Notes:
This 105-nucleotide RNA sequence from Sediminicurvatus halobius belongs to the Rfam family "TPP riboswitch aptamer (THI element)".

[Rfam]
RNA sequence: CCGAGUCGCCAGGGGAGUCCCAUCGGGGGCUGAGAGUGCGCAGCGCGCAGACCCUGGAACCUGAUCCGGUUCAUACCGGUGGAGGAAGCGCGACAUGACCGCCAU
Numbered sequence: 001c002c003g004a005g006u007c008g009c010c011a012g013g014g015g016a017g018u019c020c021c022a023u024c025g026g027g028g029g030c031u032g033a034g035a036g037u038g039c040g041c042a043g044c045g046c047g048c049a050g051a052c053c054c055u056g057g058a059a060c061c062u063g064a065u066c067c068g069g070u071u072c073a074u075a076c077c078g079g080u081g082g083a084g085g086a087a088g089c090g091c092g093a094c095a096u097g098a099c100c101g102c103c104a105u
Base pairs, nucleotide, nucleotide: 006093007092008091009090011055012054013053014052017030018029019028020027021026037049038048039047040046041045060085061084062083066079067078068077069076
NCBI's taxonomy places the organism under Bacteria, Pseudomonadota, Gammaproteobacteria, Ectothiorhodospiraceae, Sediminicurvatus.